RNA: msiK RNA
Organism: Cellulosimicrobium arenosum
RNA sequence: ACUGCACGUCACUGCACAACGGAUCGUCCGGCACGUACCUGCCGGUGGAGGGAUGUACCA
Numbered sequence: 001a002c003u004g005c006a007c008g009u010c011a012c013u014g015c016a017c018a019a020c021g022g023a024u025c026g027u028c029c030g031g032c033a034c035g036u037a038c039c040u041g042c043c044g045g046u047g048g049a050g051g052g053a054u055g056u057a058c059c060a
Stems, first nucleotide, its partner, number of pairs: 010052001012050002015047002028045006